[Rfam]
RNA sequence: GAUGUCUAUUGCCAAGCCAGCUGUGAAGCGGGUUCGGAAAGUCACGGGUCUUAUUGUACACAACAAGACAGCCGGAUUGCGCCC
Numbered sequence: 001g002a003u004g005u006c007u008a009u010u011g012c013c014a015a016g017c018c019a020g021c022u023g024u025g026a027a028g029c030g031g032g033u034u035c036g037g038a039a040a041g042u043c044a045c046g047g048g049u050c051u052u053a054u055u056g057u058a059c060a061c062a063a064c065a066a067g068a069c070a071g072c073c074g075g076a077u078u079g080c081g082c083c084c
Stems, first nucleotide, its partner, number of pairs: 012037002017032002020029003040078004045074003048069003054063003

Source information: Rfam assigns this 84-nucleotide sequence from Methylomonas lenta to the family "c-di-GMP-I riboswitch aptamer". The source organism's lineage runs through Bacteria, Pseudomonadota, Gammaproteobacteria, Methylococcales and Methylomonas.